[Rfam]
RNA sequence: AGUGCGGGCCGGGCUCCUCUAGCAAUUUGUCUUUUGUAAAUCGUGAUGUCGGACCGCAUCG
Numbered sequence: 001a002g003u004g005c006g007g008g009c010c011g012g013g014c015u016c017c018u019c020u021a022g023c024a025a026u027u028u029g030u031c032u033u034u035u036g037u038a039a040a041u042c043g044u045g046a047u048g049u050c051g052g053a054c055c056g057c058a059u060c061g
Base pairs, nucleotide, nucleotide: 006055007054009052010051011050012049022044023043025041026040027039028038029037
Background:
A member of the RNA family "terC RNA" from Alteripontixanthobacter maritimus, 61 nucleotides long. The family's RNA type in Rfam is cis-regulatory element.